[Rfam]
RNA: U5 spliceosomal RNA
Organism: Rhipicephalus sanguineus
RNA sequence: UCGCUCUGGUCCCUCCUCAGGUAUAUUGCGUGCUAAUCUUUCGCCUUUUACUAAAGAUUACCGUGGGGAGGGAUCCUCUCAAAUGAGCCUACAGGCCAAGUUUUGAAAGGCCUUGCCCGUGUGGUCG
Number, nucleotide and partner (000 for none) at each position: 001u000002c000003g088004c087005u086006c085007u000008g000009g074010u073011c072012c071013c070014u069015c068016c067017u066018c065019a064020g000021g000022u000023a000024u000025a000026u000027u000028g000029c000030g000031u000032g000033c000034u060035a059036a058037u057038c056039u055040u054041u053042c000043g000044c000045c000046u000047u000048u000049u000050a000051c000052u000053a041054a040055a039056g038057a037058u036059u035060a034061c000062c000063g000064u019065g018066g017067g016068g015069a014070g013071g012072g011073a010074u009075c000076c000077u000078c000079u000080c000081a000082a000083a000084u000085g006086a005087g004088c003089c000090u000091a000092c000093a000094g000095g000096c000097c000098a000099a000100g000101u000102u000103u000104u000105g000106a000107a000108a000109g126110g125111c124112c123113u000114u121115g000116c000117c000118c000119g000120u000121g114122u000123g112124g111125u110126c109127g000